Rfam assigns this 106-nucleotide sequence from [Clostridium] fimetarium to the family "S10-Clostridia ribosomal protein leader". On this family, see Eckert and Weinberg, BMC Microbiol 2020: "Discovery of 20 novel ribosomal leader candidates in bacteria and archaea". It is annotated as a cis-regulatory leader.
RNA sequence: UGAUAGCGUAGAAGCGAGAGGUUGCUAUGUACUAGAUACAUUGGUUUUCCGUGGAGCGAAUGUCAAUAAGCCAAUUAUCGCGAUUGGCUCAACAAACUGGCGACAA
Number, nucleotide and partner (000 for none) at each position: 001u000002g000003a000004u000005a000006g000007c000008g000009u000010a000011g000012a000013a000014g052015c051016g050017a000018g049019a048020g047021g046022u000023u000024g000025c043026u000027a041028u040029g039030u038031a037032c000033u000034a000035g000036a000037u031038a030039c029040a028041u027042u000043g025044g000045u000046u021047u020048u019049c018050c016051g015052u014053g000054g000055a000056g000057c000058g000059a000060a000061u105062g104063u103064c102065a000066a000067u000068a000069a000070g101071c100072c099073a098074a000075u000076u000077a000078u000079c000080g000081c000082g000083a000084u000085u000086g000087g000088c000089u000090c000091a000092a000093c000094a000095a000096a000097c000098u073099g072100g071101c070102g064103a063104c062105a061106a000